[Rfam]
RNA sequence: ACACGCCGAAAGGAGGUGGUCCGAACAAUGGUUAAUCAUAGUUGGGCUAGCGAGGUGGCUGUCCGCUAGGGCGCCCCAGCUCCGGACUUCUGUCCGGACGUCUGGCGACGUUCGGCGAAUCCAGGACAACACCGGAACCCCGGGCUGCCGGAAGGCGGGCCAUCCCGCCUUUGGUCCAUCCGGCCCUCCUGCCAAGCAGGAGGAGCAGGCCCGGGGUUCUUCCCUU
Numbered sequence: 001a002c003a004c005g006c007c008g009a010a011a012g013g014a015g016g017u018g019g020u021c022c023g024a025a026c027a028a029u030g031g032u033u034a035a036u037c038a039u040a041g042u043u044g045g046g047c048u049a050g051c052g053a054g055g056u057g058g059c060u061g062u063c064c065g066c067u068a069g070g071g072c073g074c075c076c077c078a079g080c081u082c083c084g085g086a087c088u089u090c091u092g093u094c095c096g097g098a099c100g101u102c103u104g105g106c107g108a109c110g111u112u113c114g115g116c117g118a119a120u121c122c123a124g125g126a127c128a129a130c131a132c133c134g135g136a137a138c139c140c141c142g143g144g145c146u147g148c149c150g151g152a153a154g155g156c157g158g159g160c161c162a163u164c165c166c167g168c169c170u171u172u173g174g175u176c177c178a179u180c181c182g183g184c185c186c187u188c189c190u191g192c193c194a195a196g197c198a199g200g201a202g203g204a205g206c207a208g209g210c211c212c213g214g215g216g217u218u219c220u221u222c223c224c225u226u
Base pairs, nucleotide, nucleotide: 015063016062017061018060019059020058064117065116066115067114069112070111072110073109075107077104078103079102134220135219136218137217138216139215140214141213142212143211144210145209146208151197